The family of this 83-nucleotide sequence from Eschrichtius robustus is "Small nucleolar RNA SNORD86". Rfam classes the family as a C/D-box small nucleolar RNA. Lineage of the source: Eukaryota > Opisthokonta > Deuterostomia > Whippomorpha > Eschrichtius. Rfam's curators write: U86 belongs to the C/D family of snoRNAs. It is the human orthologue of Xenopus laevis U86 and has no identified RNA target.
[Rfam]
RNA sequence: AACAGUGCUGGCUGACCAGGGCUCCCUGAGCUAUACAGGCCUCUGCUCUGGGGGUGAUGGCCAGUCCUAGUGUCUGAGUGAUU
Numbered sequence: 001a002a003c004a005g006u007g008c009u010g011g012c013u014g015a016c017c018a019g020g021g022c023u024c025c026c027u028g029a030g031c032u033a034u035a036c037a038g039g040c041c042u043c044u045g046c047u048c049u050g051g052g053g054g055u056g057a058u059g060g061c062c063a064g065u066c067c068u069a070g071u072g073u074c075u076g077a078g079u080g081a082u083u
Stems, first nucleotide, its partner, number of pairs: 002079002007074001009072001015071002018068006024060002027057001029055001031053002036050002038047003